Archaeal small subunit ribosomal RNA: a 523-nucleotide part of an RNA from Candidatus Acidianus copahuensis. Taxonomically the source falls in Acidianus (Archaea, Thermoproteati, Sulfolobales, Sulfolobaceae). Its family is annotated with structural constituent of ribosome and ribosome in the Gene Ontology. It scores 1476 bits against the family's covariance model. The family has 86 seed sequences and 709 matches in Rfam 15.1.
RNA sequence: AUUCCGGUUGAUCCUGCCGGACCAGACCGCUAUGGGAGUAGGGAUAAGCCAUGGGAGUCGAACGCUUCCGGGAAGGAGGCGUGGCAGACGGCUGAGUAACACGUGGUUAACUUACCCUCGGGACCUGGAUAACUCCGGGAAACUGGAGCUAAUCCGGGGCAGAUAAAGGUUGCUGGAAUGCUCCUUUAUCUAAAGGCCUCUAGGCUGUUCCCGUCUAGAGGUGCCCGAGGAUAGGACUGCGACCCAUCAGGUUGUUGGGGGAGUAAUGGUCCCCCAAGCCUAUAACGGGUAGGGGCCCUGAGAGGGGGAGCCCCCAGUUGGGCACUGAGACAAGGGCCCAGGCCCUACGGGGCGCACCAGGCGCGAAACGUCUCCAAUGCGGGGAACCGUGAGAGCGCUACUCCCAGUGCUCCCGUAAGGGAGCUUUUCCUCACUCUAGAUAGGUGAGGGAAUAAGCGGGGGGCAAGACUGGUGUCAGCCGCCGCGGUAAUACCAGCCCCGCGAGUGGUCUGGACGCUUACUG
Numbered sequence: 001a002u003u004c005c006g007g008u009u010g011a012u013c014c015u016g017c018c019g020g021a022c023c024a025g026a027c028c029g030c031u032a033u034g035g036g037a038g039u040a041g042g043g044a045u046a047a048g049c050c051a052u053g054g055g056a057g058u059c060g061a062a063c064g065c066u067u068c069c070g071g072g073a074a075g076g077a078g079g080c081g082u083g084g085c086a087g088a089c090g091g092c093u094g095a096g097u098a099a100c101a102c103g104u105g106g107u108u109a110a111c112u113u114a115c116c117c118u119c120g121g122g123a124c125c126u127g128g129a130u131a132a133c134u135c136c137g138g139g140a141a142a143c144u145g146g147a148g149c150u151a152a153u154c155c156g157g158g159g160c161a162g163a164u165a166a167a168g169g170u171u172g173c174u175g176g177a178a179u180g181c182u183c184c185u186u187u188a189u190c191u192a193a194a195g196g197c198c199u200c201u202a203g204g205c206u207g208u209u210c211c212c213g214u215c216u217a218g219a220g221g222u223g224c225c226c227g228a229g230g231a232u233a234g235g236a237c238u239g240c241g242a243c244c245c246a247u248c249a250g251g252u253u254g255u256u257g258g259g260g261g262a263g264u265a266a267u268g269g270u271c272c273c274c275c276a277a278g279c280c281u282a283u284a285a286c287g288g289g290u291a292g293g294g295g296c297c298c299u300g301a302g303a304g305g306g307g308g309a310g311c312c313c314c315c316a317g318u319u320g321g322g323c324a325c326u327g328a329g330a331c332a333a334g335g336g337c338c339c340a341g342g343c344c345c346u347a348c349g350g351g352g353c354g355c356a357c358c359a360g361g362c363g364c365g366a367a368a369c370g371u372c373u374c375c376a377a378u379g380c381g382g383g384g385a386a387c388c389g390u391g392a393g394a395g396c397g398c399u400a401c402u403c404c405c406a407g408u409g410c411u412c413c414c415g416u417a418a419g420g421g422a423g424c425u426u427u428u429c430c431u432c433a434c435u436c437u438a439g440a441u442a443g444g445u446g447a448g449g450g451a452a453u454a455a456g457c458g459g460g461g462g463g464c465a466a467g468a469c470u471g472g473u474g475u476c477a478g479c480c481g482c483c484g485c486g487g488u489a490a491u492a493c494c495a496g497c498c499c500c501g502c503g504a505g506u507g508g509u510c511u512g513g514a515c516g517c518u519u520a521c522u523g
Stems, first nucleotide, its partner, number of pairs: 004020005022513010033406009042364001048362003052359003057085003062082007092317003102241007111234002116230007124158004133148006163189007172181002196222010243289003250280003255277008292314004296307004319340005342353004370396001372395003378391005409424006429449007456502006469496004478485002